Rfam assigns this 154-nucleotide RNA sequence from Actinobacillus succinogenes to the family "Molybdenum/Tungsten riboswitch aptamer (Moco RNA motif)". Lineage of the source: Bacteria > Pseudomonadati > Gammaproteobacteria > Pasteurellaceae > Actinobacillus succinogenes. A reference for the family is Regulski et al. (2008), "in molybdenum cofactor and tungsten cofactor metabolism", Mol Microbiol. It is one of the family's seed sequences.
[Rfam]
RNA sequence: UCAAUUUUCGUUUACCGAGCUUGUGUGCCUAAGUUCUUCCGGUUAUCCGGCGCGGAAUAAGGCAGCAACGCCAGCGAUGCGGUUUAUCGCUCAGGGAUCCGUUGGAAACAGUUGGUCCUACCGAUUUUUGUAAAGGUAUUCAAUGCAAUCUAUU
Numbered sequence: 001u002c003a004a005u006u007u008u009c010g011u012u013u014a015c016c017g018a019g020c021u022u023g024u025g026u027g028c029c030u031a032a033g034u035u036c037u038u039c040c041g042g043u044u045a046u047c048c049g050g051c052g053c054g055g056a057a058u059a060a061g062g063c064a065g066c067a068a069c070g071c072c073a074g075c076g077a078u079g080c081g082g083u084u085u086a087u088c089g090c091u092c093a094g095g096g097a098u099c100c101g102u103u104g105g106a107a108a109c110a111g112u113u114g115g116u117c118c119u120a121c122c123g124a125u126u127u128u129u130g131u132a133a134a135g136g137u138a139u140u141c142a143a144u145g146c147a148a149u150c151u152a153u154u
Stems, first nucleotide, its partner, number of pairs: 006145001013138004019071002022068001026064004033058004073091007094119006101112004120131002